The family of this 87-nucleotide sequence from Klebsiella sp. RIT-PI-d is "DsrA RNA". The source organism's lineage runs through Bacteria, Gammaproteobacteria, Enterobacterales, Enterobacteriaceae and Klebsiella. DsrA RNA regulates both transcription, by overcoming transcriptional silencing by the nucleoid-associated H-NS protein, and translation, by promoting efficient translation of the stress sigma factor, RpoS. These two activities of DsrA can be separated by mutation: the first of three stem-loops of the 85 nucleotide RNA is necessary for RpoS translation but not for anti-H-NS action, while the second stem-loop is essential for antisilencing and less critical for RpoS translation. The third stem-loop, which behaves as a transcription terminator, can be substituted by the trp transcription terminator without loss of either DsrA function. The sequence of the first stem-loop of DsrA is complementary with the upstream leader portion of RpoS messenger RNA, suggesting that pairing of DsrA with the RpoS message might be important for translational regulation. On this family, see Sledjeski and Gottesman, Proc Natl Acad Sci USA 1995: "A small RNA acts as an antisilencer of the H-NS-silenced rcsA gene of Escherichia coli". Rfam classes the family as a small RNA.
RNA sequence: CCCGCAUCAGAUUUCCUGGUGUAACGAAUUUUAAAGUGCUUCUUGCAUUCGCAAGUUUCAACCCGACCCUGAUAAGGGCCGGGUUUU
Numbered sequence: 001c002c003c004g005c006a007u008c009a010g011a012u013u014u015c016c017u018g019g020u021g022u023a024a025c026g027a028a029u030u031u032u033a034a035a036g037u038g039c040u041u042c043u044u045g046c047a048u049u050c051g052c053a054a055g056u057u058u059c060a061a062c063c064c065g066a067c068c069c070u071g072a073u074a075a076g077g078g079c080c081g082g083g084u085u086u087u
Base pairs, nucleotide, nucleotide: 004022005021006020007019008018009017010016026058027057028056029054030053031051033049034048036046037045038044060085061084062083063082064081065080068077069076